[Rfam]
RNA sequence: ACUUGUUCCGCUGUAGCAGCACGUAAAUAUUGGUGUAGUAAAGAUAACGCCAAUAUUAUUGUGCUGCUUAAGCGUGACAGGG
Numbered sequence: 001a002c003u004u005g006u007u008c009c010g011c012u013g014u015a016g017c018a019g020c021a022c023g024u025a026a027a028u029a030u031u032g033g034u035g036u037a038g039u040a041a042a043g044a045u046a047a048c049g050c051c052a053a054u055a056u057u058a059u060u061g062u063g064c065u066g067c068u069u070a071a072g073c074g075u076g077a078c079a080g081g082g
Stems, first nucleotide, its partner, number of pairs: 002081005015068009026057011
Rfam assigns this 82-nucleotide sequence from Laticauda laticaudata to the family "mir-15 microRNA precursor family". The match comes from Rfam's covariance-model search (70 bits). Its family is annotated with miRNA-mediated post-transcriptional gene silencing and RISC complex in the Gene Ontology. Rfam describes the family as follows. This family represents the related mir-15a and mir-15b sequences. The organism belongs to Laticauda, within Eukaryota. The family's consensus secondary structure was predicted with RNAalifold. Clan: mir-15 clan. The literature on the family includes a 2001 paper in Science by Lagos-Quintana et al., "Identification of novel genes coding for small expressed RNAs".